[Rfam]
The record is an 84-nucleotide RNA sequence from Pelistega indica, which matches "SucA RNA motif" in Rfam. By type it is a cis-regulatory element. Taxonomically the source falls in Pelistega (Bacteria, Pseudomonadati, Pseudomonadota, Alcaligenaceae).

RNA sequence: UCGCUGUCCGUAAGUCGGUUAAGCCGUGAAUCGGAAGGUUAUCCUGCAUCCAUUAUGGUGAAACACUCAUAGAAAGGUGAAGCG
Numbered sequence: 001u002c003g004c005u006g007u008c009c010g011u012a013a014g015u016c017g018g019u020u021a022a023g024c025c026g027u028g029a030a031u032c033g034g035a036a037g038g039u040u041a042u043c044c045u046g047c048a049u050c051c052a053u054u055a056u057g058g059u060g061a062a063a064c065a066c067u068c069a070u071a072g073a074a075a076g077g078u079g080a081a082g083c084g
Base pairs, nucleotide, nucleotide: 002084003083004082007035008034009033010032016026017025018024019023037044038043047079048078049077050076054071055070056069057067058066059065060064